This 95-nucleotide RNA sequence from Nocardia donostiensis belongs to the Rfam family "Glycine riboswitch aptamer". Rfam links the family to the GO term glycine biosynthetic process. The source organism's lineage runs through Bacteria, Bacillati, Mycobacteriales, Nocardiaceae and Nocardia.
RNA sequence: CGCCGCCGUGCGGGAGAGUUCCGGGUAAGUCCCGGGCGCCGAAGGAGCAGCACCUCCCCGUCAAUCUCUCAGGCAUCAGGGACCGUGCGGGGUUC
Number, nucleotide and partner (000 for none) at each position: 001c000002g000003c000004c000005g000006c090007c089008g088009u087010g086011c085012g084013g083014g000015a000016g000017a000018g000019u000020u036021c035022c034023g033024g000025g000026u000027a000028a000029g000030u000031c000032c000033c023034g022035g021036g020037c000038g074039c073040c072041g070042a069043a000044g000045g068046a067047g066048c000049a000050g000051c000052a061053c060054c000055u000056c000057c000058c000059c000060g053061u052062c000063a000064a000065u000066c047067u046068c045069u042070c041071a000072g040073g039074c038075a000076u000077c000078a000079g000080g000081g000082a000083c013084c012085g011086u010087g009088c008089g007090g006091g000092g000093u000094u000095c000